The family of this 74-nucleotide sequence from Sinomicrobium oceani is "tRNA". Rfam's curators write: Transfer RNA (tRNA) molecules are approximately 80 nucleotides in length.

[Rfam]
RNA sequence: GGGGAUGUAGCUCAGUUGGCUAGAGCGUUUGACUGGCAGUCAAAAGGUCGUGGGUUCGAAUCCCAUCUUCUCCA
Numbered sequence: 001g002g003g004g005a006u007g008u009a010g011c012u013c014a015g016u017u018g019g020c021u022a023g024a025g026c027g028u029u030u031g032a033c034u035g036g037c038a039g040u041c042a043a044a045a046g047g048u049c050g051u052g053g054g055u056u057c058g059a060a061u062c063c064c065a066u067c068u069u070c071u072c073c074a
Stems, first nucleotide, its partner, number of pairs: 001073005007067001010026004028044005050066005

Gene Ontology term of the family: triplet codon-amino acid adaptor activity.